[Rfam]
RNA: SAM/SAH riboswitch aptamer
Organism: Thalassobius vesicularis
RNA sequence: UCCCUGUCACAACGGCUUCCUGACGUGGCGGGCAGAUUUAAUGGAGCA
Numbered sequence: 001u002c003c004c005u006g007u008c009a010c011a012a013c014g015g016c017u018u019c020c021u022g023a024c025g026u027g028g029c030g031g032g033c034a035g036a037u038u039u040a041a042u043g044g045a046g047c048a
Base pairs, nucleotide, nucleotide: 004031005030006029007028008027009026010025013022014021015047016046017045019044020043